FMN riboswitch aptamer (RFN element): a 113-nucleotide RNA from Pseudocoprococcus catus.

RNA sequence: AGUUUUCUUCGGAAAUGAGCAUGUUCUCUACUGGCGGUGACAGCCCGCGAGCCAUUCGGCUAAUUCGGUGUAAUUCCGGAGCCAACAGUCAGUCUGGAGGGGAGAAGGAGGCU
Dot-bracket structure: ..((((((((......(((......))).[[((((((.....[[))))..(((....)))...(((((.......)))))]])).(((...]]))).......))))))))..
Numbered sequence: 001a002g003u004u005u006u007c008u009u010c011g012g013a014a015a016u017g018a019g020c021a022u023g024u025u026c027u028c029u030a031c032u033g034g035c036g037g038u039g040a041c042a043g044c045c046c047g048c049g050a051g052c053c054a055u056u057c058g059g060c061u062a063a064u065u066c067g068g069u070g071u072a073a074u075u076c077c078g079g080a081g082c083c084a085a086c087a088g089u090c091a092g093u094c095u096g097g098a099g100g101g102g103a104g105a106a107g108g109a110g111g112c113u
Stems, first nucleotide, its partner, number of pairs: 003111008017028003030093002032084002034048004043082002051060003064080005086096003
Lineage of the source: Bacteria > Bacillati > Bacillota > Clostridia > Pseudocoprococcus.